Overview:
The record is a 105-nucleotide RNA from Molossus molossus, which matches "Vault RNA" in Rfam.

[Rfam]
Nucleotides: 105
Base pairs, nucleotide, nucleotide: 002100003099004098005097006096007095013089014088015087016086018085020083026079028077030075031074032073033072
Number, partner (000 for none) and nucleotide at each position: 001000g002100g003099g004098c005097u006096g007095g008000c009000u010000u011000u012000a013089g014088c015087u016086c017000a018085g019000a020083g021000a022000u023000u024000c025000c026079u027000c028077c029000c030075a031074g032073u033072c034000a035000a036000g037000u038000u039000u040000u041000c042000a043000g044000c045000u046000u047000g048000c049000u050000a051000a052000c053000c054000g055000c056000c057000c058000u059000u060000u061000c062000c063000u064000g065000c066000c067000a068000g069000g070000g071000u072033g073032g074031u075030u076000u077028g078000a079026g080000a081000c082000c083020c084000c085018u086016g087015g088014g089013u090000g091000c092000u093000c094000u095007c096006c097005a098004g099003c100002c101000c102000u103000u104000u105000u